[Rfam]
RNA: MIR6274 microRNA precursor family
Organism: Prunus armeniaca
RNA sequence: GUAUAGCACUUUUUGCUAUUCCCGACUAAUAACAUAAUAACACGUAAGAUAGUUUUUUCAUGUGUCAUUGUGUUAUUGGUUGGGGAUAGCAAAACAAUGUUAUUC
Numbered sequence: 001g002u003a004u005a006g007c008a009c010u011u012u013u014u015g016c017u018a019u020u021c022c023c024g025a026c027u028a029a030u031a032a033c034a035u036a037a038u039a040a041c042a043c044g045u046a047a048g049a050u051a052g053u054u055u056u057u058u059c060a061u062g063u064g065u066c067a068u069u070g071u072g073u074u075a076u077u078g079g080u081u082g083g084g085g086a087u088a089g090c091a092a093a094a095c096a097a098u099g100u101u102a103u104u105c
Base pairs, nucleotide, nucleotide: 003103004102005101011094012093013092014091015090016089017088018087019086021084022083023082024081025080026079027078028077029076030075031074032073033072034071035070036069037068038067040065041064042063043062044061045060047058048057049056